[Rfam]
RNA: let-7 microRNA precursor family
Organism: Alligator mississippiensis
RNA sequence: CUAGGGUGAGGUAGUAAGUUGUAUCGUUGGGGGGUCGGGAUUGGAGCCCCGGUGUCGAGGUAACUAUACAACUUACUACUUUCCCUGG
Numbered sequence: 001c002u003a004g005g006g007u008g009a010g011g012u013a014g015u016a017a018g019u020u021g022u023a024u025c026g027u028u029g030g031g032g033g034g035u036c037g038g039g040a041u042u043g044g045a046g047c048c049c050c051g052g053u054g055u056c057g058a059g060g061u062a063a064c065u066a067u068a069c070a071a072c073u074u075a076c077u078a079c080u081u082u083c084c085c086u087g088g
Stems, first nucleotide, its partner, number of pairs: 001088006008082017026064002032050003053058001